Shown here is a 94-nucleotide sequence from Faecalibaculum rodentium, a member of the family "THF (Tetrahydrofolate) riboswitch aptamer". The match comes from Rfam's covariance-model search (82 bits). A reference for the family is Ames et al. (2010), "A eubacterial riboswitch class that senses the coenzyme tetrahydrofolate", Chem Biol. Taxonomically the source falls in Faecalibaculum (Bacteria, Bacillati, Erysipelotrichia, Erysipelotrichaceae).
RNA sequence: GGCAGAGUAAGGAUACAGGCGUAAAGUGUUUCGGGCACGGGGAGUUGGUCCGAAAACGAAGCAAGCCGCGAUCUGUAUCCUGCAUCCCGCUGUC
Numbered sequence: 001g002g003c004a005g006a007g008u009a010a011g012g013a014u015a016c017a018g019g020c021g022u023a024a025a026g027u028g029u030u031u032c033g034g035g036c037a038c039g040g041g042g043a044g045u046u047g048g049u050c051c052g053a054a055a056a057c058g059a060a061g062c063a064a065g066c067c068g069c070g071a072u073c074u075g076u077a078u079c080c081u082g083c084a085u086c087c088c089g090c091u092g093u094c
Stems, first nucleotide, its partner, number of pairs: 001094005010081010020070003026057002029055008040087003044083001061067001
Dot-bracket structure: (((((....(((((((((((((...((.((((((((...[[[.[...))))))))))...(.....)))).)))))))))).].]]]..)))))